[Rfam]
mir-395 microRNA precursor family: a 99-nucleotide sequence from Oryza sativa.
For this family Rfam cites "Computational Identification of Plant MicroRNAs and Their Targets, Including a Stress-Induced miRNA" (Jones-Rhoades and Bartel, Mol Cell, 2004).
From the family's description: mir-395 was identified in both Arabidopsis thaliana and Oryza sativa computationally and was later experimentally verified. mir-395 is thought to target mRNAs coding for ATP sulphurylases.
RNA sequence: GUUUUAUCGGGAGUUUCCUUCAAGCACUUCACGUAGAGCUUUCUAUUGAUAUGGAGCUUUGGAACAAUGUGAAGUGUUUGGGGGAACUCUUGAUACCAA
Numbered sequence: 001g002u003u004u005u006a007u008c009g010g011g012a013g014u015u016u017c018c019u020u021c022a023a024g025c026a027c028u029u030c031a032c033g034u035a036g037a038g039c040u041u042u043c044u045a046u047u048g049a050u051a052u053g054g055a056g057c058u059u060u061g062g063a064a065c066a067a068u069g070u071g072a073a074g075u076g077u078u079u080g081g082g083g084g085a086a087c088u089c090u091u092g093a094u095a096c097c098a099a
Base pairs, nucleotide, nucleotide: 005095006094007093008092009091011089012088013087014086015085016084017083018082019081020080022079023078024077025076026075027074028073029072030071031070032069033068034067036065